A member of the RNA family "L31-Firmicutes ribosomal protein leader" from Weissella hellenica, 33 nucleotides long. Taxonomically the source falls in Weissella (Bacteria, Bacilli, Lactobacillales, Lactobacillaceae). It is one of the family's seed sequences. By type it is a cis-regulatory leader.
[Rfam]
Nucleotides: 033
Base pairs, nucleotide, nucleotide: 001023002022003021004020005019008016009015010014
Number, partner (000 for none) and nucleotide at each position: 001023c002022u003021c004020u005019g006000a007000u008016u009015u010014u011000u012000a013000u014010a015009a016008a017000u018000u019005c020004a021003g022002g023001g024000c025000g026000a027000u028000a029000a030000g031000g032000a033000g